[Rfam]
RNA: Bacterial RNase P class B
Organism: Aneurinibacillus migulanus
RNA sequence: AAGUGUGGACAGUCGCUGUUCAUCGUCAGAUGAAUAGAGGAAAGUCCAGGCUCGCCCAGACUGUAAUGUCUGGAGUGUUUGUGCCUAUCGCAAGGUAGGGCAGUCGGGUUACCGGCUGACGGCGGUGAAAUCGGCUACGUUCUUCGGAAUAUGCCGAAAAUAGCCUGAAAGUGCCACAGUGACGAAGCUUUGUCGGAAACGGCAGAGGUGGAACGAGGUAAACCCCGCAAGCGAGCAACCCAAAUUUUGGUAGGGGCACUAUCCAAAGGGAAACGAACUGGAGGAUAGACGGGAAUUUAUUCCCGUAGAUAGAUGACUGUCACUUCCGUGUACCAGGCUGGCUGCCGCGAUGAGUACGGGAAGUACAAAACCUGGCUUACAUCA
Numbered sequence: 001a002a003g004u005g006u007g008g009a010c011a012g013u014c015g016c017u018g019u020u021c022a023u024c025g026u027c028a029g030a031u032g033a034a035u036a037g038a039g040g041a042a043a044g045u046c047c048a049g050g051c052u053c054g055c056c057c058a059g060a061c062u063g064u065a066a067u068g069u070c071u072g073g074a075g076u077g078u079u080u081g082u083g084c085c086u087a088u089c090g091c092a093a094g095g096u097a098g099g100g101c102a103g104u105c106g107g108g109u110u111a112c113c114g115g116c117u118g119a120c121g122g123c124g125g126u127g128a129a130a131u132c133g134g135c136u137a138c139g140u141u142c143u144u145c146g147g148a149a150u151a152u153g154c155c156g157a158a159a160a161u162a163g164c165c166u167g168a169a170a171g172u173g174c175c176a177c178a179g180u181g182a183c184g185a186a187g188c189u190u191u192g193u194c195g196g197a198a199a200c201g202g203c204a205g206a207g208g209u210g211g212a213a214c215g216a217g218g219u220a221a222a223c224c225c226c227g228c229a230a231g232c233g234a235g236c237a238a239c240c241c242a243a244a245u246u247u248u249g250g251u252a253g254g255g256g257c258a259c260u261a262u263c264c265a266a267a268g269g270g271a272a273a274c275g276a277a278c279u280g281g282a283g284g285a286u287a288g289a290c291g292g293g294a295a296u297u298u299a300u301u302c303c304c305g306u307a308g309a310u311a312g313a314u315g316a317c318u319g320u321c322a323c324u325u326c327c328g329u330g331u332a333c334c335a336g337g338c339u340g341g342c343u344g345c346c347g348c349g350a351u352g353a354g355u356a357c358g359g360g361a362a363g364u365a366c367a368a369a370a371c372c373u374g375g376c377u378u379a380c381a382u383c384a
Stems, first nucleotide, its partner, number of pairs: 004384002007380001008321007016037006042378003046375005051235005056073006079230005084099006100120001101118006121225002124165003132156004139150003171223002173219003188207008239255003259288006289306006323363004327358005